Shown here is a 308-nucleotide RNA sequence from Meleagris gallopavo, a member of the family "7SK RNA". The source organism's lineage runs through Eukaryota, Chordata, Archosauria, Aves and Meleagris. The literature on the family includes a 1991 paper in Mol Cell Biol by Wassarman and Steitz, "Structural analyses of the 7SK ribonucleoprotein (RNP), the most abundant human small RNP of unknown function". 7SK was discovered as an abundant small nuclear RNA in the mid-70s but a possible function has only recently been suggested.

RNA sequence: AGAUAUGAGGGUGAUCUAUGAGAUCUGUCACCCCAUUGACCACCAGGGGUGAUUUGGCUGAUCUGGCUGUCUAGGCGGGUGUCUCCUUCCUCUCUCACUGCUCCAUAUGCAUCCCUUUCAAAGCUGCAUGCUUGAUUGAAGAUGACCUUCCCUGAUAGAGAUGUACCAUUAAUAGGUAUAUGGUAGCUGCACUCCCCUUCUAGAACCUCCAAACAAGCUUGAGGUCCAUUUGUAGGAGAAUACAGAGUAGACAAGCUUCCAGGACUGUGGACACACCCAUACAAAGCACUGCAUGGGGCAGUGCCUGU
Numbered sequence: 001a002g003a004u005a006u007g008a009g010g011g012u013g014a015u016c017u018a019u020g021a022g023a024u025c026u027g028u029c030a031c032c033c034c035a036u037u038g039a040c041c042a043c044c045a046g047g048g049g050u051g052a053u054u055u056g057g058c059u060g061a062u063c064u065g066g067c068u069g070u071c072u073a074g075g076c077g078g079g080u081g082u083c084u085c086c087u088u089c090c091u092c093u094c095u096c097a098c099u100g101c102u103c104c105a106u107a108u109g110c111a112u113c114c115c116u117u118u119c120a121a122a123g124c125u126g127c128a129u130g131c132u133u134g135a136u137u138g139a140a141g142a143u144g145a146c147c148u149u150c151c152c153u154g155a156u157a158g159a160g161a162u163g164u165a166c167c168a169u170u171a172a173u174a175g176g177u178a179u180a181u182g183g184u185a186g187c188u189g190c191a192c193u194c195c196c197c198u199u200c201u202a203g204a205a206c207c208u209c210c211a212a213a214c215a216a217g218c219u220u221g222a223g224g225u226c227c228a229u230u231u232g233u234a235g236g237a238g239a240a241u242a243c244a245g246a247g248u249a250g251a252c253a254a255g256c257u258u259c260c261a262g263g264a265c266u267g268u269g270g271a272c273a274c275a276c277c278c279a280u281a282c283a284a285a286g287c288a289c290u291g292c293a294u295g296g297g298g299c300a301g302u303g304c305c306u307g308u
Stems, first nucleotide, its partner, number of pairs: 002103002006097006013089002020083002023080007032069001033066003038063002041060001043057002113163001115160003118135004123131002136155003144150002186256003192250002195247001197245002207238004213233005284306001286304007